[Rfam]
RNA sequence: CGUCCUCUGCCUUACGCGACAGCGUACGCUAACAUUCGCCUUGUCCCUUAAUACGACCCCGGGGGUUGAAGUCCAUCGCCGUGUGCAUGUCCGCCACCGAGCGGAAAGCCUGACGCGAGGAUCGACGCCCCCACCUGAUCCUCGGGAUCAAGGUCGUUUCGUAGGCAUCGGUAAAGGCGGAGGAUGC
Dot-bracket structure: .((((((((((((((.(((..................(((.((.((..............(((.((.......(.((((.....((...(((((......)))))..)).....)))).)......)).)))............))..)).))).............))))))).))))))))))..
Shown here is a 187-nucleotide RNA from Alkalisalibacterium limincola, a member of the family "6S / SsrS RNA". A reference for the family is Wassarman and Storz (2000), "6S RNA regulates E. coli RNA polymerase activity", Cell. By type it is a non-coding RNA gene. The match comes from Rfam's covariance-model search (76 bits). Rfam describes the family as follows. E. coli 6S RNA was the first non coding RNA to be sequenced, but its function was unknown until recently. It consists of 184 nucleotides that fold into an extended hairpin structure with a large single-stranded internal bulge. The 6S RNA specifically associates with RNA polymerase holoenzyme containing the sigma70 specificity factor.